[Rfam]
RNA sequence: ACGUAGGUGGCGUCCCACAGCGCGUCCUCGUCGGUCAGCGACUCGUCGCCGAAGUAGUCGCCGUCGGCGAGGACGGCCAGCACCGCCUCGUCGUCGUACUGCCCGGCCCGGACCUUGUUGACCUUGCCGUGGGCGAGCAGGUACAGGUCGUCGCUGUCGGCGCCGGCGGUGGCGACGACGUCGCCGGGGCCGUACUCGUGCUGGGUGAACCGGUCGGCCAUCGCGGACAGGACGUCCUCGUCGGCGUACCCGCGCAGGGCCGGCAGCUCGGUCAGCUCGGGCGGGACGACCCGGACCGUGGCGCCGGUGUUGGUGAAGCUGAUCCGGCCGUCGCCGAUCGCGUAGCUGAGCCGCCGGUUCACCCGGUACGACCCGCCGGAGACCUGGACCCACGGCAGGACCUUCAGCAGCCACCGCGAGGUGAUCUCCUGCAUCUGCGGAACGGUCUUCGUGGUCGUCGCCAGGUUGCGGGCGGCGGCGGUGCUGAGGCUGCGCUGGCGCUGCUG
Numbered sequence: 001a002c003g004u005a006g007g008u009g010g011c012g013u014c015c016c017a018c019a020g021c022g023c024g025u026c027c028u029c030g031u032c033g034g035u036c037a038g039c040g041a042c043u044c045g046u047c048g049c050c051g052a053a054g055u056a057g058u059c060g061c062c063g064u065c066g067g068c069g070a071g072g073a074c075g076g077c078c079a080g081c082a083c084c085g086c087c088u089c090g091u092c093g094u095c096g097u098a099c100u101g102c103c104c105g106g107c108c109c110g111g112a113c114c115u116u117g118u119u120g121a122c123c124u125u126g127c128c129g130u131g132g133g134c135g136a137g138c139a140g141g142u143a144c145a146g147g148u149c150g151u152c153g154c155u156g157u158c159g160g161c162g163c164c165g166g167c168g169g170u171g172g173c174g175a176c177g178a179c180g181u182c183g184c185c186g187g188g189g190c191c192g193u194a195c196u197c198g199u200g201c202u203g204g205g206u207g208a209a210c211c212g213g214u215c216g217g218c219c220a221u222c223g224c225g226g227a228c229a230g231g232a233c234g235u236c237c238u239c240g241u242c243g244g245c246g247u248a249c250c251c252g253c254g255c256a257g258g259g260c261c262g263g264c265a266g267c268u269c270g271g272u273c274a275g276c277u278c279g280g281g282c283g284g285g286a287c288g289a290c291c292c293g294g295a296c297c298g299u300g301g302c303g304c305c306g307g308u309g310u311u312g313g314u315g316a317a318g319c320u321g322a323u324c325c326g327g328c329c330g331u332c333g334c335c336g337a338u339c340g341c342g343u344a345g346c347u348g349a350g351c352c353g354c355c356g357g358u359u360c361a362c363c364c365g366g367u368a369c370g371a372c373c374c375g376c377c378g379g380a381g382a383c384c385u386g387g388a389c390c391c392a393c394g395g396c397a398g399g400a401c402c403u404u405c406a407g408c409a410g411c412c413a414c415c416g417c418g419a420g421g422u423g424a425u426c427u428c429c430u431g432c433a434u435c436u437g438c439g440g441a442a443c444g445g446u447c448u449u450c451g452u453g454g455u456c457g458u459c460g461c462c463a464g465g466u467u468g469c470g471g472g473c474g475g476c477g478g479c480g481g482u483g484c485u486g487a488g489g490c491u492g493c494g495c496u497g498g499c500g501c502u503g504c505u506g
Base pairs, nucleotide, nucleotide: 006390007389008388012384015381018327020325022324025322026321029318031316032315035313036312037311038310039309040308042306045305047303048302049301050300051299054233055232058229061226062225063224064223065111067109075103078101079100080099082097083096085094086093117222119220120219122217123216127212129210130209132206134204136202137201139199141197143196149192150191154189155188157187158186159185160184161183163177166173167172234296235295236294237293240290241289242288243287245285249283251281253279254278256277257276260271261270262269329342330341331340351379352378353377355375356374357373362370391431392430394428395427397425400422401421403418405416407415437476438475440473443470444469447465448464449463451461452460477505478504481499482498484497486495488493

Notes
This 506-nucleotide RNA sequence from Pilimelia anulata belongs to the Rfam family "Saccharopolyspora sRNA 350". Rfam 15.1 lists 1,170 matches to the family in 705 species. Pairs were carried over by alignment from the consensus structure, which was predicted with RNAfold. Lineage of the source: Bacteria > Bacillati > Actinomycetota > Actinomycetes > Pilimelia. On this family, see Liu et al., PLoS One 2013: "Prediction and characterization of small non-coding RNAs related to secondary metabolites in Saccharopolyspora erythraea".